Record summary: The family of this 76-nucleotide sequence from Citrifermentans bemidjiense is "c-di-GMP-I riboswitch aptamer". The source organism's lineage runs through Bacteria, Thermodesulfobacteriota, Desulfuromonadia, Geobacteraceae and Citrifermentans bemidjiense. The match comes from Rfam's covariance-model search (49 bits).
Nucleotides: 076
Base pairs, nucleotide, nucleotide: 012037013036017032018031019030020029021028022027040070041069042068043067047065048064049061050060051059052058053057
Number, partner (000 for none) and nucleotide at each position: 001000g002000a003000c004000g005000a006000c007000a008000a009000a010000u011000g012037c013036u014000a015000a016000a017032c018031c019030a020029u021028c022027c023000g024000c025000g026000a027022g028021g029020a030019u031018g032017g033000g034000g035000c036013g037012g038000a039000a040070a041069g042068c043067c044000c045000a046000a047065g048064g049061g050060u051059c052058u053057c054000a055000c056000c057053g058052a059051g060050a061049c062000a063000g064048c065047c066000g067043g068042g069041u070040u071000g072000c073000c074000g075000a076000a